[Rfam]
Nucleotides: 085
Base pairs, nucleotide, nucleotide: 001077002076003075004074005073006072007071008070009069012045013044014043015041016040025036026035027034047062048061049060050059
Number, partner (000 for none) and nucleotide at each position: 001077g002076u003075c004074g005073g006072g007071a008070g009069g010000g011000c012045g013044g014043c015041u016040a017000a018000u019000a020000c021000a022000a023000c024000a025036c026035u027034c028000c029000u030000u031000c032000g033000g034027g035026a036025g037000g038000a039000a040016u041015a042000c043014g044013c045012c046000c047062g048061c049060c050059g051000a052000c053000u054000a055000u056000g057000c058000a059050c060049g061048g062047u063000u064000u065000c066000u067000a068000a069009c070008c071007u072006c073005c074004c075003g076002a077001c078000a079000u080000c081000c082000c083000g084000u085000c
Rfam assigns this 85-nucleotide RNA sequence from Xanthomonas campestris to the family "sRNA-Xcc1". The family's consensus secondary structure was predicted with RNAalifold. For this family Rfam cites "sRNA-Xcc1, an integron-encoded transposon- and plasmid-transferred trans-acting sRNA, is under the positive control of the key virulence regulators HrpG and HrpX of Xanthomonas campestris pathovar campestris" (Chen et al., RNA Biol, 2011). Rfam classes the family as a small RNA. Lineage of the source: Bacteria > Gammaproteobacteria > Lysobacterales > Lysobacteraceae > Xanthomonas campestris pv. campestris.